A member of the RNA family "tRNA" from Candidatus Arthromitus sp. SFB-turkey, 71 nucleotides long.

[Rfam]
RNA sequence: GCGGGUAUCGUAUAUCGGUAAUACUCCAGCCUUCCAAGCUGGCAAGGUGGGUUCGAUUCCCACUACCCGCU
Number, nucleotide and partner (000 for none) at each position: 001g070002c069003g068004g067005g066006u065007a064008u000009c000010g024011u023012a022013u021014a000015u000016c000017g000018g000019u000020a000021a013022u012023a011024c010025u000026c042027c041028a040029g039030c038031c000032u000033u000034c000035c000036a000037a000038g030039c029040u028041g027042g026043c000044a000045a000046g000047g063048u062049g061050g060051g059052u000053u000054c000055g000056a000057u000058u000059c051060c050061c049062a048063c047064u007065a006066c005067c004068c003069g002070c001071u000
Rfam links the family to the GO term triplet codon-amino acid adaptor activity. It scores 62 bits against the family's covariance model. The family has 954 seed sequences and 5,335,975 matches in Rfam 15.1. NCBI's taxonomy places the organism under Bacteria, Bacillati, Bacillota, Clostridia, Candidatus Neoarthromitus. Rfam's curators write: Transfer RNA (tRNA) molecules are approximately 80 nucleotides in length.